[Rfam]
RNA sequence: UUUGGCAAGUGAUGAAUAAUUCUUAUCCUACACACUGAAUAUUAUUUGUAUUGAAUACAAAAUAAAUAUCCAAGAUAUUUUUGCCAUA
Numbered sequence: 001u002u003u004g005g006c007a008a009g010u011g012a013u014g015a016a017u018a019a020u021u022c023u024u025a026u027c028c029u030a031c032a033c034a035c036u037g038a039a040u041a042u043u044a045u046u047u048g049u050a051u052u053g054a055a056u057a058c059a060a061a062a063u064a065a066a067u068a069u070c071c072a073a074g075a076u077a078u079u080u081u082u083g084c085c086a087u088a
Stems, first nucleotide, its partner, number of pairs: 003086007

Shown here is an 88-nucleotide sequence from Papaver nudicaule, a member of the family "Small nucleolar RNA R16". The literature on the family includes a 2002 paper in Curr Biol by Marker et al., "Experimental RNomics: identification of 140 candidates for small non-messenger RNAs in the plant Arabidopsis thaliana". Rfam classes the family as a C/D-box small nucleolar RNA.